[Rfam]
The family of this 84-nucleotide RNA from Streptomyces chumphonensis is "sodF sRNA".
The base pairs follow the family's consensus structure.
On this family, see Kim et al., Nucleic Acids Res 2014: "Inverse regulation of Fe- and Ni-containing SOD genes by a Fur family regulator Nur through small RNA processed from 3'UTR of the sodF mRNA".
Rfam links the family to the GO terms mRNA binding, negative regulation of translation and regulation of mRNA stability.
It scores 48 bits against the family's covariance model.
The source organism's lineage runs through Bacteria, Bacillati, Actinomycetes, Kitasatosporales and Streptomyces.

RNA sequence: CCUGCCCUCGUGAUCGUCUUCUCACCGCUCACGGGCAGGUGUGCGGGGGCCUUCCCGGGUGCCCGACGCACCCGGGAAGGCCCC
Numbered sequence: 001c002c003u004g005c006c007c008u009c010g011u012g013a014u015c016g017u018c019u020u021c022u023c024a025c026c027g028c029u030c031a032c033g034g035g036c037a038g039g040u041g042u043g044c045g046g047g048g049g050c051c052u053u054c055c056c057g058g059g060u061g062c063c064c065g066a067c068g069c070a071c072c073c074g075g076g077a078a079g080g081c082c083c084c
Stems, first nucleotide, its partner, number of pairs: 001039007010032004016026001046084016